[Rfam]
The family of this 118-nucleotide RNA from Nyssa sinensis is "mir-172 microRNA precursor family".

RNA sequence: UUGUUUGCGGGUGUAGCAUCAUCAAGAUUCACAGCCAAAUGCACAGUGGUGAUGUAAAAUCUCUUUGGUGAUAGUCUGCCAAUGCUGAGAAUCUUGAUGAUGCUGCAUCGGCAAUAAA
Numbered sequence: 001u002u003g004u005u006u007g008c009g010g011g012u013g014u015a016g017c018a019u020c021a022u023c024a025a026g027a028u029u030c031a032c033a034g035c036c037a038a039a040u041g042c043a044c045a046g047u048g049g050u051g052a053u054g055u056a057a058a059a060u061c062u063c064u065u066u067g068g069u070g071a072u073a074g075u076c077u078g079c080c081a082a083u084g085c086u087g088a089g090a091a092u093c094u095u096g097a098u099g100a101u102g103c104u105g106c107a108u109c110g111g112c113a114a115u116a117a118a
Stems, first nucleotide, its partner, number of pairs: 010109021032087004
Rfam describes the family as follows. mir-172 has been experimentally verified in Arabidopsis thaliana. Its family is annotated with miRNA-mediated post-transcriptional gene silencing and RISC complex in the Gene Ontology. For this family Rfam cites "Computational Identification of Plant MicroRNAs and Their Targets, Including a Stress-Induced miRNA" (Jones-Rhoades and Bartel, Mol Cell, 2004). Lineage of the source: Eukaryota > Viridiplantae > Mesangiospermae > eudicotyledons > Nyssa.